The family of this 464-nucleotide RNA sequence from Melipona quadrifasciata is "Nuclear RNase P".
About the family: Ribonuclease P (RNase P) is a ubiquitous endoribonuclease, found in archaea, bacteria and eukarya as well as chloroplasts and mitochondria. Its best characterised activity is the generation of mature 5'-ends of tRNAs by cleaving the 5'-leader elements of precursor-tRNAs. Cellular RNase Ps are ribonucleoproteins. RNA from bacterial RNase Ps retains its catalytic activity in the absence of the protein subunit, i.e. it is a ribozyme. Isolated eukaryotic and archaeal RNase P RNA has not been shown to retain its catalytic function, but is still essential for the catalytic activity of the holoenzyme. Although the archaeal and eukaryotic holoenzyme s have a much greater protein content than the bacterial ones, the RNA cores from all the three lineages are homologous -- helices corresponding to P1, P2, P3, P4, and P10/11 are common to all cellular RNase P RNAs. Yet, there is considerable sequence variation, particularly among the eukaryotic RNAs.
Taxonomically the source falls in Melipona (Eukaryota, Allotriocarida, Insecta, Neoptera).
Rfam 15.1 lists 3,848 matches to the family in 1,862 species.
The literature on the family includes a 1998 paper in Annu Rev Biochem by Frank and Pace, "Ribonuclease P: unity and diversity in a tRNA processing ribozyme".
Rfam links the family to the GO terms ribonuclease P complex, tRNA processing and ribonuclease P activity.

[Rfam]
RNA sequence: GCCAGAGUUAAUCUAGCAGAAGAGGCACACAAUAGCCAAGGGUACUUAGUUACCGCGAAACCUUUGCCUCGGGAAGGUCUGAGAUAAAGUCGUGUCCCUUCUCCUCGAAGGGCAAACGCUCUAGAAGGGCGAUCCUAUAAAUGGAUGCGAGAAAACCAGAAACAGUGGGCCCACCCCAUUCUGUCGCCGUGGAUGGCCAGUUUUCUUCUUCUCUCACUCAUUCAUGUCCUCUCUUCUAUCCCUUCUCUGUCAUUUUCCCUCUUAGCCCUUUUCCACUGAUUCCUCGCAAGUACAAGAGGGGGAAACUGGCGGGAGGUUAUGUGGUGUGGUCGAUGGAAAUUCUUGUGACUCGCAAUUUCAGUACAAUCUGCAAGCCGUCCCUCCAUGUUCGUAUCCGUCCUCCUCGCGGAUGGACGUCGUUCUAAGGUGGGAUGGAACUCAAUUCAGACUAAUCUGACUCUGGC
Numbered sequence: 001g002c003c004a005g006a007g008u009u010a011a012u013c014u015a016g017c018a019g020a021a022g023a024g025g026c027a028c029a030c031a032a033u034a035g036c037c038a039a040g041g042g043u044a045c046u047u048a049g050u051u052a053c054c055g056c057g058a059a060a061c062c063u064u065u066g067c068c069u070c071g072g073g074a075a076g077g078u079c080u081g082a083g084a085u086a087a088a089g090u091c092g093u094g095u096c097c098c099u100u101c102u103c104c105u106c107g108a109a110g111g112g113c114a115a116a117c118g119c120u121c122u123a124g125a126a127g128g129g130c131g132a133u134c135c136u137a138u139a140a141a142u143g144g145a146u147g148c149g150a151g152a153a154a155a156c157c158a159g160a161a162a163c164a165g166u167g168g169g170c171c172c173a174c175c176c177c178a179u180u181c182u183g184u185c186g187c188c189g190u191g192g193a194u195g196g197c198c199a200g201u202u203u204u205c206u207u208c209u210u211c212u213c214u215c216a217c218u219c220a221u222u223c224a225u226g227u228c229c230u231c232u233c234u235u236c237u238a239u240c241c242c243u244u245c246u247c248u249g250u251c252a253u254u255u256u257c258c259c260u261c262u263u264a265g266c267c268c269u270u271u272u273c274c275a276c277u278g279a280u281u282c283c284u285c286g287c288a289a290g291u292a293c294a295a296g297a298g299g300g301g302g303a304a305a306c307u308g309g310c311g312g313g314a315g316g317u318u319a320u321g322u323g324g325u326g327u328g329g330u331c332g333a334u335g336g337a338a339a340u341u342c343u344u345g346u347g348a349c350u351c352g353c354a355a356u357u358u359c360a361g362u363a364c365a366a367u368c369u370g371c372a373a374g375c376c377g378u379c380c381c382u383c384c385a386u387g388u389u390c391g392u393a394u395c396c397g398u399c400c401u402c403c404u405c406g407c408g409g410a411u412g413g414a415c416g417u418c419g420u421u422c423u424a425a426g427g428u429g430g431g432a433u434g435g436a437a438c439u440c441a442a443u444u445c446a447g448a449c450u451a452a453u454c455u456g457a458c459u460c461u462g463g464c
Stems, first nucleotide, its partner, number of pairs: 001464004008457003013374002016371004022070005041054004045049001079447005088350004117131005132146004147346007166332003375435007